[Rfam]
RNA sequence: AGAGCCUCGAGCCAAUAAACACUAAGAAGAUUGACUCAGGAAAAA
Numbered sequence: 001a002g003a004g005c006c007u008c009g010a011g012c013c014a015a016u017a018a019a020c021a022c023u024a025a026g027a028a029g030a031u032u033g034a035c036u037c038a039g040g041a042a043a044a045a
Stems, first nucleotide, its partner, number of pairs: 006040002009037003013033004